[Rfam]
RNA sequence: GUCAUCGCGAGGUGGGGUGGGAAGGAAGCUGGCGGCAAAUCCUGGCACCGAGGAACACGAAUCGCAUCAGGCAUGCAGGUCGGGGUAAGGCAGCAAACGAUGUCGAAGCCCGUUCCACCAUUGAACGGCUUGUGUGUAAAUGCGGUGGCGGUCAGGGGAAAGUGGAUGUU
Numbered sequence: 001g002u003c004a005u006c007g008c009g010a011g012g013u014g015g016g017g018u019g020g021g022a023a024g025g026a027a028g029c030u031g032g033c034g035g036c037a038a039a040u041c042c043u044g045g046c047a048c049c050g051a052g053g054a055a056c057a058c059g060a061a062u063c064g065c066a067u068c069a070g071g072c073a074u075g076c077a078g079g080u081c082g083g084g085g086u087a088a089g090g091c092a093g094c095a096a097a098c099g100a101u102g103u104c105g106a107a108g109c110c111c112g113u114u115c116c117a118c119c120a121u122u123g124a125a126c127g128g129c130u131u132g133u134g135u136g137u138a139a140a141u142g143c144g145g146u147g148g149c150g151g152u153c154a155g156g157g158g159a160a161a162g163u164g165g166a167u168g169u170u
Base pairs, nucleotide, nucleotide: 002015003014004013005012006011028170030168031167035163036162040157041156042155043154044153045152046150048148049147050146062145063144064143065142066141071137072136073135075133076132077131078130079129080128081127083111084110085109086108089104090103091102092101
The record is a 170-nucleotide RNA sequence from Leucobacter exalbidus, which matches "Group II catalytic intron D1-D4-3" in Rfam. The literature on the family includes a 2001 paper in Trends Genet by Bonen and Vogel, "The ins and outs of group II introns". The organism belongs to Leucobacter, within Bacteria. Rfam describes the family as follows. Group II introns are found in rRNA, tRNA and mRNA of organelles in fungi, plants and protists, and also in mRNA in bacteria. The match comes from Rfam's covariance-model search (121 bits).